This 134-nucleotide sequence from Corynebacterium gerontici belongs to the Rfam family "atpB RNA". By type it is a cis-regulatory element. The source organism's lineage runs through Bacteria, Actinomycetota, Mycobacteriales, Corynebacteriaceae and Corynebacterium. It scores 108 bits against the family's covariance model.
[Rfam]
RNA sequence: UAGUGGCUACCUUGCUGAUGUGCGACGGAAUCCUUGGUAGUCAUGAGAGUUUUCAGACGUCCAUCGCACCGGUGUGUUUCACGUGAGUGAAGCGGAUCGGCCCGAACACGGGAGAGAACGCUGAGCGUUACAUU
Dot-bracket structure: (.(((((((((........................))))))))).)......................(((((.((((((((....)))))))).)))))..................................
Numbered sequence: 001u002a003g004u005g006g007c008u009a010c011c012u013u014g015c016u017g018a019u020g021u022g023c024g025a026c027g028g029a030a031u032c033c034u035u036g037g038u039a040g041u042c043a044u045g046a047g048a049g050u051u052u053u054c055a056g057a058c059g060u061c062c063a064u065c066g067c068a069c070c071g072g073u074g075u076g077u078u079u080c081a082c083g084u085g086a087g088u089g090a091a092g093c094g095g096a097u098c099g100g101c102c103c104g105a106a107c108a109c110g111g112g113a114g115a116g117a118a119c120g121c122u123g124a125g126c127g128u129u130a131c132a133u134u
Stems, first nucleotide, its partner, number of pairs: 001046001003044009069100005075094008